sRNA-Xcc1: an 84-nucleotide RNA from Desulfotignum phosphitoxidans. Rfam classes the family as a small RNA.

Nucleotides: 084
Base pairs, nucleotide, nucleotide: 001076002075003074004073005072006071007070013045014044015043016042019039028035029034047062048061049060050059051058
Number, partner (000 for none) and nucleotide at each position: 001076g002075g003074c004073g005072g006071g007070u008000c009000g010000a011000u012000a013045g014044g015043g016042c017000c018000g019039a020000a021000u022000a023000c024000a025000a026000u027000a028035c029034c030000u031000u032000c033000g034029g035028g036000g037000a038000a039019u040000a041000a042016g043015c044014c045013c046000a047062g048061c049060c050059g051058u052000c053000u054000a055000g056000u057000u058051g059050c060049g061048g062047u063000a064000g065000u066000u067000g068000a069000g070007a071006c072005c073004c074003g075002c076001c077000a078000c079000u080000c081000a082000u083000a084000u
Source information: It scores 55 bits against the family's covariance model. Pairs were carried over by alignment from the consensus structure, which was predicted with RNAalifold. Lineage of the source: Bacteria > Thermodesulfobacteriota > Desulfobacterales > Desulfotignum > Desulfotignum phosphitoxidans. On this family, see Chen et al., RNA Biol 2011: "sRNA-Xcc1, an integron-encoded transposon- and plasmid-transferred trans-acting sRNA, is under the positive control of the key virulence regulators HrpG and HrpX of Xanthomonas campestris pathovar campestris".